[Rfam]
RNA sequence: GGUUGUAAUUCCGGCAACCCGGAGGCGUUCUGGACAGGGGUUCGACUCCCCUCAUCUCCACCCAAGCGCAUGCAUGCACGUGCUUUUCGGUGGGGAUGCACCGGUUUCGACAGGGCGGGCAAAGGUGCGCAGGCAACCCGUCAGGCGAUCGACGUUAAUGAAGCAAAGCCAUAAACGCCAACGAUGAGCGUUUCGCAAUCGCCGCCUAA
Number, nucleotide and partner (000 for none) at each position: 001g138002g137003u136004u135005g134006u000007a000008a000009u000010u000011c000012c000013g000014g128015c127016a126017a000018c000019c000020c000021g000022g000023a000024g000025g000026c117027g116028u115029u000030c113031u112032g111033g000034a000035c000036a052037g051038g050039g049040g048041u000042u000043c000044g000045a000046c000047u000048c040049c039050c038051c037052u036053c098054a097055u096056c095057u094058c093059c092060a091061c090062c000063c000064a000065a000066g000067c000068g000069c000070a000071u000072g000073c000074a000075u000076g000077c000078a000079c000080g000081u000082g000083c000084u000085u000086u000087u000088c000089g000090g061091u060092g059093g058094g057095g056096a055097u054098g053099c000100a000101c000102c000103g000104g000105u000106u000107u000108c000109g000110a000111c032112a031113g030114g000115g028116c027117g026118g000119g000120c000121a000122a000123a000124g000125g000126u016127g015128c014129g000130c000131a000132g000133g000134c005135a004136a003137c002138c001139c154140g153141u152142c151143a000144g000145g000146c000147g000148a000149u000150c000151g142152a141153c140154g139155u000156u000157a000158a000159u000160g000161a000162a000163g000164c000165a000166a000167a000168g000169c000170c000171a000172u000173a000174a000175a000176c000177g000178c000179c000180a000181a000182c000183g000184a000185u000186g000187a000188g000189c000190g000191u000192u000193u000194c000195g000196c000197a000198a000199u000200c000201g000202c000203c000204g000205c000206c000207u000208a000209a000